The record is an 86-nucleotide RNA sequence from Formivibrio citricus, which matches "Glycine riboswitch aptamer" in Rfam. This family represents the bacterial glycine riboswitch. Glycine riboswitches usually consist of two metabolite-binding aptamers domains with similar structures in tandem. The aptamers cooperatively bind glycine to regulate the expression of downstream genes. In Bacillus subtilis, this riboswitch is found upstream of the gcvT operon which controls glycine degradation. The pairing is the family consensus, mapped onto this sequence.
[Rfam]
RNA sequence: AGGAUGUUUUCAGGAGAGCGUGGCACCGGCCACCGCCGAAGGCGUAACUCCCAUAAUCGCUCAGGCAAAAGAACUGGCAACAUCCG
Numbered sequence: 001a002g003g004a005u006g007u008u009u010u011c012a013g014g015a016g017a018g019c020g021u022g023g024c025a026c027c028g029g030c031c032a033c034c035g036c037c038g039a040a041g042g043c044g045u046a047a048c049u050c051c052c053a054u055a056a057u058c059g060c061u062c063a064g065g066c067a068a069a070a071g072a073a074c075u076g077g078c079a080a081c082a083u084c085c086g
Stems, first nucleotide, its partner, number of pairs: 006081003010077004020033004035066003038062002042060003